[Rfam]
RNA sequence: GAAUUCAUGCCGGGCCCAGCCGAGCGCGCAGCGGGCACGCCGCGCGCGCGGAGCAGCCGUGCCCGCCGCCCGGGCCCGCCGCCAGGGCGCACACGCUCCCGCCCCCCUACCCGGCCCGGGCGGGAGUUUGCACCUCUCCCUGCCCGGGUGCUCGAGCUGCCGUUGCAAAGCCAACUUUGGAAAAAGUUUUUUGGGGGAGACUUGGGCCUUGAGGUGCCCAGCUCCGCGCUUUCCGAUUUUGGGGGCCUUUCCAGAAAAUGUUGCAAAAAAGCUAAGCCGGCGGGCAGAGGAAAACGCCUGUAGCCGGCGAGUGAAGACGAACCAUCGACUGCCGUGUUCCUUUUCCUCUUGGAGGUUGGAGUCCCCUGGGCGCCCCCACACGGCUAGACGCCUCGGCUGGUUCGCGACGCAGCCCCCCGGCCGUGGAUGCUGCACUCGGGCUCGGGAUCCGCCCAGGUAGCCGGCCUCGGACCCAGGUCCUGCGCCCAGGUCCUCCCCUGCCCCCCAGCGACGGAGCCGGGGC
Numbered sequence: 001g002a003a004u005u006c007a008u009g010c011c012g013g014g015c016c017c018a019g020c021c022g023a024g025c026g027c028g029c030a031g032c033g034g035g036c037a038c039g040c041c042g043c044g045c046g047c048g049c050g051g052a053g054c055a056g057c058c059g060u061g062c063c064c065g066c067c068g069c070c071c072g073g074g075c076c077c078g079c080c081g082c083c084a085g086g087g088c089g090c091a092c093a094c095g096c097u098c099c100c101g102c103c104c105c106c107c108u109a110c111c112c113g114g115c116c117c118g119g120g121c122g123g124g125a126g127u128u129u130g131c132a133c134c135u136c137u138c139c140c141u142g143c144c145c146g147g148g149u150g151c152u153c154g155a156g157c158u159g160c161c162g163u164u165g166c167a168a169a170g171c172c173a174a175c176u177u178u179g180g181a182a183a184a185a186g187u188u189u190u191u192u193g194g195g196g197g198a199g200a201c202u203u204g205g206g207c208c209u210u211g212a213g214g215u216g217c218c219c220a221g222c223u224c225c226g227c228g229c230u231u232u233c234c235g236a237u238u239u240u241g242g243g244g245g246c247c248u249u250u251c252c253a254g255a256a257a258a259u260g261u262u263g264c265a266a267a268a269a270a271g272c273u274a275a276g277c278c279g280g281c282g283g284g285c286a287g288a289g290g291a292a293a294a295c296g297c298c299u300g301u302a303g304c305c306g307g308c309g310a311g312u313g314a315a316g317a318c319g320a321a322c323c324a325u326c327g328a329c330u331g332c333c334g335u336g337u338u339c340c341u342u343u344u345c346c347u348c349u350u351g352g353a354g355g356u357u358g359g360a361g362u363c364c365c366c367u368g369g370g371c372g373c374c375c376c377c378a379c380a381c382g383g384c385u386a387g388a389c390g391c392c393u394c395g396g397c398u399g400g401u402u403c404g405c406g407a408c409g410c411a412g413c414c415c416c417c418c419g420g421c422c423g424u425g426g427a428u429g430c431u432g433c434a435c436u437c438g439g440g441c442u443c444g445g446g447a448u449c450c451g452c453c454c455a456g457g458u459a460g461c462c463g464g465c466c467u468c469g470g471a472c473c474c475a476g477g478u479c480c481u482g483c484g485c486c487c488a489g490g491u492c493c494u495c496c497c498c499u500g501c502c503c504c505c506c507a508g509c510g511a512c513g514g515a516g517c518c519g520g521g522g523c
Stems, first nucleotide, its partner, number of pairs: 025072002028069002031066009040051004092130002095127010106114002174187005193499007200491008213436005221430002223427006233420003241417006263272002276308006284301004289295001311410003316405001318404007325396004329387002331384007338360003342355005361371004438480004444474003448471004455467004503522004508517002
Shown here is a 523-nucleotide RNA sequence, a member of the family "c-sis internal ribosome entry site (IRES)". Pairs were carried over by alignment from the consensus structure, which was predicted with ILM. Rfam's curators put it in the seed alignment. Rfam 15.1 lists 123 matches to the family in 119 species. Rfam describes the family as follows. This family represents the c-sis 5'-UTR which contains three modules that can individually mediate internal ribosome entry. However, the full length sequence is required for maximal IRES activity. It is thought that the three IRES elements are somehow responsive to cellular changes and act to regulate the level of translation. Gene Ontology term of the family: ribosome binding.